[Rfam]
RNA: U4atac minor spliceosomal RNA
RNA sequence: ACCAUCCUUGUCUUGGGGUGAGCUGCUGUUCAGUGAGCGACCAGUGAGAAUAGCACUGCUGACACCACUGACAACACAUUGUCAUCUCUGUUGUACUUGCAAUAGAAAGGUGCAAUUUUUGGAACC
Number, nucleotide and partner (000 for none) at each position: 001a000002c000003c000004a000005u000006c018007c017008u016009u015010g000011u000012c000013u000014u000015g009016g008017g007018g006019u000020g059021a000022g057023c000024u000025g054026c053027u052028g051029u050030u049031c048032a000033g000034u000035g000036a000037g045038c044039g000040a000041c000042c000043a000044g038045u037046g000047a000048g031049a030050a029051u028052a027053g026054c025055a000056c000057u022058g000059c020060u000061g000062a000063c000064a000065c000066c000067a000068c000069u000070g000071a000072c000073a000074a000075c000076a000077c000078a000079u000080u000081g000082u000083c112084a111085u110086c109087u108088c105089u104090g103091u102092u101093g100094u000095a000096c000097u000098u000099g000100c093101a092102a091103u090104a089105g088106a000107a000108a087109g086110g085111u084112g083113c000114a000115a000116u000117u000118u000119u000120u000121g000122g000123a000124a000125c000126c000